[Rfam]
RNA sequence: AGAUACCAGGGACAAAAAGCCGGACGUCCGGCGCGGGCUUGCCGGCCGGGGCGGUUUCGGUUUUCUGGCCCGCCAAAACAAGAACAGGCAGCCGGUUUCAAAAAGGGCGGACGGUUUCCGUUUUGGGACUGCAGGGGCGCGCGGCGCGAAACAAUCUGGUAUCC
Numbered sequence: 001a002g003a004u005a006c007c008a009g010g011g012a013c014a015a016a017a018a019g020c021c022g023g024a025c026g027u028c029c030g031g032c033g034c035g036g037g038c039u040u041g042c043c044g045g046c047c048g049g050g051g052c053g054g055u056u057u058c059g060g061u062u063u064u065c066u067g068g069c070c071c072g073c074c075a076a077a078a079c080a081a082g083a084a085c086a087g088g089c090a091g092c093c094g095g096u097u098u099c100a101a102a103a104a105g106g107g108c109g110g111a112c113g114g115u116u117u118c119c120g121u122u123u124u125g126g127g128a129c130u131g132c133a134g135g136g137g138c139g140c141g142c143g144g145c146g147c148g149a150a151a152c153a154a155u156c157u158g159g160u161a162u163c164c
Base pairs, nucleotide, nucleotide: 002163003162004161005160006159007158010070011069013067016064017063018062019061020060021059022058023057024056026052027051028050029049031047033046034045036043037042074125075124076123077122078121079120084115085114087112091108092107093106096103097102126157127156128155130153131152137147138146139145140144
RNA: Clostridiales-1 RNA